Rfam assigns this 104-nucleotide RNA sequence from Microdochium bolleyi to the family "Small nucleolar RNA Z13/snr52". Gene Ontology terms of the family: nucleolus and RNA processing. The organism belongs to Microdochium, within Eukaryota. The match comes from Rfam's covariance-model search (74 bits). Rfam classes the family as a C/D-box small nucleolar RNA.
RNA sequence: AAAAUGGAGAUGACGAAAUAUUUCGGAUGUAAACCUAUUGUCAUUGACUGAACAGCGCAUAACCCCGUGUUGAUACUCUCCGUUGCCUUCCUUCUGAUCCAUUA
Numbered sequence: 001a002a003a004a005u006g007g008a009g010a011u012g013a014c015g016a017a018a019u020a021u022u023u024c025g026g027a028u029g030u031a032a033a034c035c036u037a038u039u040g041u042c043a044u045u046g047a048c049u050g051a052a053c054a055g056c057g058c059a060u061a062a063c064c065c066c067g068u069g070u071u072g073a074u075a076c077u078c079u080c081c082g083u084u085g086c087c088u089u090c091c092u093u094c095u096g097a098u099c100c101a102u103u104a
Base pairs, nucleotide, nucleotide: 003103004102005101024082025081026080027079